This 159-nucleotide RNA from Clostridium perfringens belongs to the Rfam family "M-box riboswitch aptamer (ykoK leader)".
RNA sequence: AAUAUUAAUCGGUAGGUGAGGUUACCACCGGGAUACGGAUUGCUGCCGCAAAAUAGUGGAGACACUAUGAGAAGGUUAGCAGGCUAUGUCGAGAAACAAGGCAUAAUCUAAUGCAAUUUCAUUGCCCAGUGAAGCUAAAACUUGAACGAUAUUAUACUU
Numbered sequence: 001a002a003u004a005u006u007a008a009u010c011g012g013u014a015g016g017u018g019a020g021g022u023u024a025c026c027a028c029c030g031g032g033a034u035a036c037g038g039a040u041u042g043c044u045g046c047c048g049c050a051a052a053a054u055a056g057u058g059g060a061g062a063c064a065c066u067a068u069g070a071g072a073a074g075g076u077u078a079g080c081a082g083g084c085u086a087u088g089u090c091g092a093g094a095a096a097c098a099a100g101g102c103a104u105a106a107u108c109u110a111a112u113g114c115a116a117u118u119u120c121a122u123u124g125c126c127c128a129g130u131g132a133a134g135c136u137a138a139a140a141c142u143u144g145a146a147c148g149a150u151a152u153u154a155u156a157c158u159u
Stems, first nucleotide, its partner, number of pairs: 006154004011147001013099001015142003020136003026131003030127003039117005045076003054067002057064002082108002085105001088102003
M-box riboswitch, also know as ykoK leader is described as a metaloregulatory RNA that sense divalent metals and function as a genetic control element of genes related to divalent metal transport in bacteria. It was first reported upstream of the B.subtilis ykoK gene and genes with related functions in other bacteria.
The family has 159 seed sequences and 1,095 matches in Rfam 15.1.
The base pairs follow the family's consensus structure.
Lineage of the source: Bacteria > Bacillota > Clostridia > Clostridium > Clostridium perfringens B.